[Rfam]
RNA sequence: AAAAGUUGAAGUAUUGAUGAAAACUGUGAUAACUCUGUAGGCAUUACUUCGAACAAACGAGUUAUUCGAGUCCAGAUGAAAGCCGUUCUACGAGUCGUCAGCCUAGUCGUCAUUCGCGUCGUCGUGAUUAUUAUCACGCCGUGCGGGGCUACGCUCGGAGGAACAAAGGCUUAAUAAACAAGCCGAUUUUCUAAAGAACCCCCGCACCGAAAGGUCCGGGGGUUUUUUUUAUCACUCAAUUUUAGUCAUAAGGAACACAUCAUGAUAACUAGCAUAAAAUGCUGUUGUUCCCGCAAAAA
Numbered sequence: 001a002a003a004a005g006u007u008g009a010a011g012u013a014u015u016g017a018u019g020a021a022a023a024c025u026g027u028g029a030u031a032a033c034u035c036u037g038u039a040g041g042c043a044u045u046a047c048u049u050c051g052a053a054c055a056a057a058c059g060a061g062u063u064a065u066u067c068g069a070g071u072c073c074a075g076a077u078g079a080a081a082g083c084c085g086u087u088c089u090a091c092g093a094g095u096c097g098u099c100a101g102c103c104u105a106g107u108c109g110u111c112a113u114u115c116g117c118g119u120c121g122u123c124g125u126g127a128u129u130a131u132u133a134u135c136a137c138g139c140c141g142u143g144c145g146g147g148g149c150u151a152c153g154c155u156c157g158g159a160g161g162a163a164c165a166a167a168g169g170c171u172u173a174a175u176a177a178a179c180a181a182g183c184c185g186a187u188u189u190u191c192u193a194a195a196g197a198a199c200c201c202c203c204g205c206a207c208c209g210a211a212a213g214g215u216c217c218g219g220g221g222g223u224u225u226u227u228u229u230u231a232u233c234a235c236u237c238a239a240u241u242u243u244a245g246u247c248a249u250a251a252g253g254a255a256c257a258c259a260u261c262a263u264g265a266u267a268a269c270u271a272g273c274a275u276a277a278a279a280u281g282c283u284g285u286u287g288u289u290c291c292c293g294c295a296a297a298a299a
Base pairs, nucleotide, nucleotide: 005033006032007031008030011027012026015022038074040072041071042070044068046066048064049060050059084253086251089248093243098238100236101235106230108118109117110116120141121140123138124137126135127134128133142159144157145156146155147154161191162190163189169184171182172181193228194227195226196225197224198223199222200221201220202219203218204217206215207214208213254286255285256284257283262275263274264273
Rfam assigns this 299-nucleotide RNA from Erwinia sp. OLSSP12 to the family "Soft rot Enterobacteriaceae Rev 39 5'UTR". Its family is annotated with cellular response to starvation in the Gene Ontology. It scores 105 bits against the family's covariance model. About the family: From bacteria cultured under starvation conditions. By type it is a cis-regulatory element. The family's consensus secondary structure was predicted with RNAfold.